Rfam assigns this 85-nucleotide sequence from Desulfobaculum xiamenense to the family "ZMP/ZTP riboswitch aptamer (pfl RNA motif)". The base pairs follow the family's consensus structure, which is taken from published work.

RNA sequence: UCGGUACCGCGCGACUGGCGAGAAUUGUGGAACCAACCACAGGGAAGCGCGGAAAGCCAUCAAGCCGCUCGCCUGGGCUGCAUCG
Numbered sequence: 001u002c003g004g005u006a007c008c009g010c011g012c013g014a015c016u017g018g019c020g021a022g023a024a025u026u027g028u029g030g031a032a033c034c035a036a037c038c039a040c041a042g043g044g045a046a047g048c049g050c051g052g053a054a055a056g057c058c059a060u061c062a063a064g065c066c067g068c069u070c071g072c073c074u075g076g077g078c079u080g081c082a083u084c085g
Stems, first nucleotide, its partner, number of pairs: 005054001007052006015044002017073005027040004063079004